[Rfam]
RNA sequence: UUGCCCUCUUAAGUCUGGCAAGUGUCUUAAGUGGCCAAAAACGAGGGGUAUAAAAAUUCUCUCUCAAACCCAGAGGUGAGCUUAAAAACUUGCCUUUGGAUCAUGCUGAGAGGAACACAG
Numbered sequence: 001u002u003g004c005c006c007u008c009u010u011a012a013g014u015c016u017g018g019c020a021a022g023u024g025u026c027u028u029a030a031g032u033g034g035c036c037a038a039a040a041a042c043g044a045g046g047g048g049u050a051u052a053a054a055a056a057u058u059c060u061c062u063c064u065c066a067a068a069c070c071c072a073g074a075g076g077u078g079a080g081c082u083u084a085a086a087a088a089c090u091u092g093c094c095u096u097u098g099g100a101u102c103a104u105g106c107u108g109a110g111a112g113g114a115a116c117a118c119a120g
Stems, first nucleotide, its partner, number of pairs: 002050006009043001014039001016037002019034001057114001059112005070099007078091003082088002
Dot-bracket structure: .((((((.(....(.((.(..............).)).)...).))))))......(.(((((......(((((((.(((.((...))))).)))))))........))))).)......
The record is a 120-nucleotide sequence from Psilopogon haemacephalus, which matches "Small nucleolar RNA SNORA26" in Rfam. It is annotated as an H/ACA-box small nucleolar RNA. The family is grouped with related families in Rfam's "SNORA27 clan". The literature on the family includes a 2001 paper in EMBO J by Huttenhofer et al., "RNomics: an experimental approach that identifies 201 candidates for novel, small, non-messenger RNAs in mouse". Its family is annotated with RNA processing and nucleolus in the Gene Ontology.